[Rfam]
RNA sequence: AACCGAAACCCACUCACGCACGGCAGGAGCGGGGGAACCAGGUAAGCCGCCGGUCCGGUAUCCGGAACGGCUAGGGGUGAAGUCGCAGUCCCUGCGGCCAGACAUCUCCCGUCUGAACCCGACAGCUCACCUCGUAGGCGCCGGAGAGGAAAUUC
Numbered sequence: 001a002a003c004c005g006a007a008a009c010c011c012a013c014u015c016a017c018g019c020a021c022g023g024c025a026g027g028a029g030c031g032g033g034g035g036a037a038c039c040a041g042g043u044a045a046g047c048c049g050c051c052g053g054u055c056c057g058g059u060a061u062c063c064g065g066a067a068c069g070g071c072u073a074g075g076g077g078u079g080a081a082g083u084c085g086c087a088g089u090c091c092c093u094g095c096g097g098c099c100a101g102a103c104a105u106c107u108c109c110c111g112u113c114u115g116a117a118c119c120c121g122a123c124a125g126c127u128c129a130c131c132u133c134g135u136a137g138g139c140g141c142c143g144g145a146g147a148g149g150a151a152a153u154u155c
Base pairs, nucleotide, nucleotide: 003138004137009027010026029135030134031133032132033131034130039074075120076119077118083097084096085095086094100114101113102112103111